RNA sequence: UACAACACCCAUCAAAGGAGUAGUUCCCCACCCUAGAGCUACUUUACCACACUUUGAAUUU
Numbered sequence: 001u002a003c004a005a006c007a008c009c010c011a012u013c014a015a016a017g018g019a020g021u022a023g024u025u026c027c028c029c030a031c032c033c034u035a036g037a038g039c040u041a042c043u044u045u046a047c048c049a050c051a052c053u054u055u056g057a058a059u060u061u
Stems, first nucleotide, its partner, number of pairs: 017045010
The record is a 61-nucleotide RNA sequence from Cajanus cajan, which matches "Plastid-psbN 5UTR RNA" in Rfam. Pairs were carried over by alignment from the consensus structure, which was predicted with LocARNA. Rfam classes the family as a cis-regulatory element. Rfam's curators write: Plastid psbN is a non-coding RNA (ncRNA) recognised in plastids. It was reported as a conserved 11 stem-loop in the prime untranslated region (5UTR) of psbN genes. It has been reported that the motif is retained in a subset of mature transcripts in barley, which can suggests a possible role in transcript alternative 5 prime processing. On this family, see Richter et al., Plant Commun 2023: "Retrograde signaling in plants: A critical review focusing on the GUN pathway and beyond". Rfam 15.1 lists 2,345 matches to the family in 397 species.